[Rfam]
RNA: mir-2060 microRNA precursor family
RNA sequence: GUUUACCUGUGUGUGAAUGGUGUUCAGCAUUAAGGACAGGUGUGUUUACCUGUGUGUGGAUGGUGUUCAGCACAAGGACAGGUAUGUUUACCG
Numbered sequence: 001g002u003u004u005a006c007c008u009g010u011g012u013g014u015g016a017a018u019g020g021u022g023u024u025c026a027g028c029a030u031u032a033a034g035g036a037c038a039g040g041u042g043u044g045u046u047u048a049c050c051u052g053u054g055u056g057u058g059g060a061u062g063g064u065g066u067u068c069a070g071c072a073c074a075a076g077g078a079c080a081g082g083u084a085u086g087u088u089u090a091c092c093g
Stems, first nucleotide, its partner, number of pairs: 004084007018074001020073005026067007034055001036053007